[Rfam]
RNA: Plant signal recognition particle RNA
Organism: Marchantia polymorpha
RNA sequence: UCUGGGCAGCGUAGCGGCUGUCUCUUACAAGAGCGGGAGUAAGAGAGAUGGGAGCUGCGGCUCUCGCAGAGGACCGCUGGGAUCAUGUCGAAGGCACGUCCACUCGAAGCGUGGAGUGUCUGAUCUGGGCUCCUCGGCGGAAGCCAGGGAGUCUGGGGAGAUGAUGCGGAAGGCACAGCGUGAGGCGGGCGAUCGAGCAGCGAUCACUUCCCGCUCUGCGCAGUCGAGGGACCGCGUGCUUGAAUGCUUGCCAGCGAUCAUCCGAUGUGAGCAGCUUCCUGCGACCUCUCUCUG
Numbered sequence: 001u002c003u004g005g006g007c008a009g010c011g012u013a014g015c016g017g018c019u020g021u022c023u024c025u026u027a028c029a030a031g032a033g034c035g036g037g038a039g040u041a042a043g044a045g046a047g048a049u050g051g052g053a054g055c056u057g058c059g060g061c062u063c064u065c066g067c068a069g070a071g072g073a074c075c076g077c078u079g080g081g082a083u084c085a086u087g088u089c090g091a092a093g094g095c096a097c098g099u100c101c102a103c104u105c106g107a108a109g110c111g112u113g114g115a116g117u118g119u120c121u122g123a124u125c126u127g128g129g130c131u132c133c134u135c136g137g138c139g140g141a142a143g144c145c146a147g148g149g150a151g152u153c154u155g156g157g158g159a160g161a162u163g164a165u166g167c168g169g170a171a172g173g174c175a176c177a178g179c180g181u182g183a184g185g186c187g188g189g190c191g192a193u194c195g196a197g198c199a200g201c202g203a204u205c206a207c208u209u210c211c212c213g214c215u216c217u218g219c220g221c222a223g224u225c226g227a228g229g230g231a232c233c234g235c236g237u238g239c240u241u242g243a244a245u246g247c248u249u250g251c252c253a254g255c256g257a258u259c260a261u262c263c264g265a266u267g268u269g270a271g272c273a274g275c276u277u278c279c280u281g282c283g284a285c286c287u288c289u290c291u292c293u294g
Base pairs, nucleotide, nucleotide: 001038002037003036004023005022006021007020008019009018010017028035042293043292044291045290046289047288048287050286051285054282055281057278059275063271064270065269066268067267068266071263072262073261075256076255077254078253079252080251082249086243092241093240094239095238096237097236098235099234100230101229103228104227105226106225107224109221110220111219112218113217114216115215116214117213120160121159124156125155127154128153129152130151131150132149133148134147136145137144138143168211169210170209171208172207177204179202180201181200186195187194188193